[Rfam]
RNA sequence: GAUCGAAUAUAUCGACGUGAGAGUUAGUUAGAACUAUUAAAUCGGAAUACUAGCUGGUCUAGGAUCCAUAUUUGUAGGGAAACGGCUCA
Number, nucleotide and partner (000 for none) at each position: 001g000002a000003u000004c000005g000006a000007a000008u000009a000010u000011a000012u000013c000014g000015a000016c000017g000018u000019g000020a000021g088022a087023g086024u085025u084026a000027g000028u081029u000030a000031g000032a000033a000034c000035u000036a000037u000038u074039a073040a072041a071042u070043c000044g067045g066046a065047a000048u000049a000050c062051u061052a060053g059054c000055u000056g000057g000058u000059c053060u052061a051062g050063g000064a000065u046066c045067c044068a000069u000070a042071u041072u040073u039074g038075u000076a000077g000078g000079g000080a000081a028082a000083c000084g025085g024086c023087u022088c021089a000

Annotation
Shown here is an 89-nucleotide RNA sequence from Amylolactobacillus amylophilus, a member of the family "Lacto-usp RNA". The match comes from Rfam's covariance-model search (50 bits).